The family of this 101-nucleotide RNA from Streptomyces inusitatus is "che1 RNA".
[Rfam]
RNA sequence: UGGACAGGGGGGUUCCCGCCCCAGCGGCGGGACCUGUCCGAUGUGUGUCGCGCGUGAUGCGUCAGGCGCGGCCAGUGGUUGUCGCUCGGGGGUGAUCGCCG
Numbered sequence: 001u002g003g004a005c006a007g008g009g010g011g012g013u014u015c016c017c018g019c020c021c022c023a024g025c026g027g028c029g030g031g032a033c034c035u036g037u038c039c040g041a042u043g044u045g046u047g048u049c050g051c052g053c054g055u056g057a058u059g060c061g062u063c064a065g066g067c068g069c070g071g072c073c074a075g076u077g078g079u080u081g082u083c084g085c086u087c088g089g090g091g092g093u094g095a096u097c098g099c100c101g
Stems, first nucleotide, its partner, number of pairs: 001040008014032007045073001047072007
About this RNA
It scores 84 bits against the family's covariance model. The base pairs follow the family's consensus structure, which is taken from published work. The family's RNA type in Rfam is small RNA. Lineage of the source: Bacteria > Bacillati > Kitasatosporales > Streptomycetaceae > Streptomyces.